The family of this 234-nucleotide RNA from Brachypodium distachyon is "MIR159 microRNA precursor family".
A search with the family's covariance model found it, with a score of 116 bits.
On this family, see Jones-Rhoades and Bartel, Mol Cell 2004: "Computational identification of plant microRNAs and their targets, including a stress-induced miRNA".
Its family is annotated with RISC complex and miRNA-mediated post-transcriptional gene silencing in the Gene Ontology.
Pairs were carried over by alignment from the consensus structure, which was predicted with WAR.

[Rfam]
RNA sequence: AUUCAUUUGAGGGAGCUUUCUUCUGUCCACCCAUGGGAGGUAGCGGGGAUUGAACGAGCUGCCGACUCAUUCACUCGAACACACAGUGGAUAACUGGAUAUGCAGACUAAUCCAAGGCAUAAUAUCUACUAGUGUGGAAUAAUAUCUACUGUGUGAAUGAGCGAAUGAAGCGGGAGAUUGUUCUCUCUUUCCUCCUCCAUGCUUGGACUGAAGGGAGCUCCCUCACCUCUCAUC
Numbered sequence: 001a002u003u004c005a006u007u008u009g010a011g012g013g014a015g016c017u018u019u020c021u022u023c024u025g026u027c028c029a030c031c032c033a034u035g036g037g038a039g040g041u042a043g044c045g046g047g048g049a050u051u052g053a054a055c056g057a058g059c060u061g062c063c064g065a066c067u068c069a070u071u072c073a074c075u076c077g078a079a080c081a082c083a084c085a086g087u088g089g090a091u092a093a094c095u096g097g098a099u100a101u102g103c104a105g106a107c108u109a110a111u112c113c114a115a116g117g118c119a120u121a122a123u124a125u126c127u128a129c130u131a132g133u134g135u136g137g138a139a140u141a142a143u144a145u146c147u148a149c150u151g152u153g154u155g156a157a158u159g160a161g162c163g164a165a166u167g168a169a170g171c172g173g174g175a176g177a178u179u180g181u182u183c184u185c186u187c188u189u190u191c192c193u194c195c196u197c198c199a200u201g202c203u204u205g206g207a208c209u210g211a212a213g214g215g216a217g218c219u220c221c222c223u224c225a226c227c228u229c230u231c232a233u234c
Stems, first nucleotide, its partner, number of pairs: 013220008023210001025208005036197001059176002062173003068167004076159001